[Rfam]
RNA: T-box leader
RNA sequence: UAAGACACUGUGAAGAGAAGGAGUAGCUAAAUGUCUUAUUUAAAGCGAGUCGAAGAUGGUGUAAGUUCGAUAAUAAGCUUUAGUGAAGGGCAUCUCGGAGUGUUUUUUAUAAAGUGGACUUUUAUGUCAAUAAGGGUGGAACCGCGGAAGAAAACCUUUCGUCCCUUGC
Numbered sequence: 001u002a003a004g005a006c007a008c009u010g011u012g013a014a015g016a017g018a019a020g021g022a023g024u025a026g027c028u029a030a031a032u033g034u035c036u037u038a039u040u041u042a043a044a045g046c047g048a049g050u051c052g053a054a055g056a057u058g059g060u061g062u063a064a065g066u067u068c069g070a071u072a073a074u075a076a077g078c079u080u081u082a083g084u085g086a087a088g089g090g091c092a093u094c095u096c097g098g099a100g101u102g103u104u105u106u107u108u109a110u111a112a113a114g115u116g117g118a119c120u121u122u123u124a125u126g127u128c129a130a131u132a133a134g135g136g137u138g139g140a141a142c143c144g145c146g147g148a149a150g151a152a153a154a155c156c157u158u159u160c161g162u163c164c165c166u167u168g169c
Base pairs, nucleotide, nucleotide: 007101008100015096016095017094018093026084027083028082029081030080031079038074039073040072049071050070051069052068053067054066117128118127119126133166134165135164136163144162145161146160147159148158149157150156